[Rfam]
RNA sequence: CUCUUAUCCAGAGCGGCGGAGGGACUGGCCCGAUGAAGCCCGGCAACCUAUUUGAAAGGGAUAGCCUUUCAAAUGUGGUGCCAAUUCCUGCAGAGGGUAUCUCUGGGAGAUGAGAG
Number, nucleotide and partner (000 for none) at each position: 001c116002u115003c114004u113005u112006a111007u110008c109009c000010a000011g000012a000013g041014c000015g040016g039017c038018g000019g000020a000021g031022g030023g029024a000025c090026u000027g088028g087029c023030c022031c021032g000033a000034u000035g000036a000037a000038g017039c016040c015041c013042g082043g081044c080045a079046a000047c078048c077049u000050a000051u072052u071053u000054g000055a000056a000057a000058g000059g000060g000061a000062u000063a000064g000065c000066c000067u000068u000069u000070c000071a052072a051073a000074u000075g000076u000077g048078g047079u045080g044081c043082c042083a000084a000085u000086u108087c028088c027089u000090g025091c105092a104093g103094a102095g101096g100097g000098u000099a000100u096101c095102u094103c093104u092105g091106g000107g000108a086109g008110a007111u006112g005113a004114g003115a002116g001